Shown here is a 125-nucleotide RNA sequence from Caenorhabditis japonica, a member of the family "Caenorhabditis snoRNA ceN81".
It is annotated as an H/ACA-box small nucleolar RNA.
The family's consensus secondary structure was predicted with RNAalifold.
RNA sequence: AGCGAAGGGUAGUCAUUUGUAUACGUGGAACAUUUAUACAGAGUUACACUCUUCGAAUAGUAUUGCUUCUUCUCGUUGGAGUUGUUUUCUUAUAAGCAGUAGCCUCUAUAUUGCAAGCAACAAUU
Numbered sequence: 001a002g003c004g005a006a007g008g009g010u011a012g013u014c015a016u017u018u019g020u021a022u023a024c025g026u027g028g029a030a031c032a033u034u035u036a037u038a039c040a041g042a043g044u045u046a047c048a049c050u051c052u053u054c055g056a057a058u059a060g061u062a063u064u065g066c067u068u069c070u071u072c073u074c075g076u077u078g079g080a081g082u083u084g085u086u087u088u089c090u091u092a093u094a095a096g097c098a099g100u101a102g103c104c105u106c107u108a109u110a111u112u113g114c115a116a117g118c119a120a121c122a123a124u125u
Stems, first nucleotide, its partner, number of pairs: 003055008012047002016042008025033002064119005072113001077108005082099006

Its family is annotated with RNA processing and nucleolus in the Gene Ontology.